[Rfam]
RNA: Streptomyces sRNA 4677
RNA sequence: CGGCCUGGCACGACAUCAAGUCUUUAGAUCCCCCGGGAGAAAAACCCCACCCAACCCCACCAGCCUCCCGCGGCUGCCCAUCACCCGCAAGGGUGACGAUCGCCAACUCAGCUGGCUUUCCAUCCGGUUGGCGGGCAUAUGCUCGCCGCGACAGAGAGCCAACUCCAGAACAUGCGACGGCCCCCGGCCGGGACUGGCAUCCCGAUCGAGGGCCUGACCACCGAGGAAGCAGGACCCUUCCCG
Numbered sequence: 001c002g003g004c005c006u007g008g009c010a011c012g013a014c015a016u017c018a019a020g021u022c023u024u025u026a027g028a029u030c031c032c033c034c035g036g037g038a039g040a041a042a043a044a045c046c047c048c049a050c051c052c053a054a055c056c057c058c059a060c061c062a063g064c065c066u067c068c069c070g071c072g073g074c075u076g077c078c079c080a081u082c083a084c085c086c087g088c089a090a091g092g093g094u095g096a097c098g099a100u101c102g103c104c105a106a107c108u109c110a111g112c113u114g115g116c117u118u119u120c121c122a123u124c125c126g127g128u129u130g131g132c133g134g135g136c137a138u139a140u141g142c143u144c145g146c147c148g149c150g151a152c153a154g155a156g157a158g159c160c161a162a163c164u165c166c167a168g169a170a171c172a173u174g175c176g177a178c179g180g181c182c183c184c185c186g187g188c189c190g191g192g193a194c195u196g197g198c199a200u201c202c203c204g205a206u207c208g209a210g211g212g213c214c215u216g217a218c219c220a221c222c223g224a225g226g227a228a229g230c231a232g233g234a235c236c237c238u239u240c241c242c243g
Stems, first nucleotide, its partner, number of pairs: 081096006111147001113145003179214005185208002190203004225241005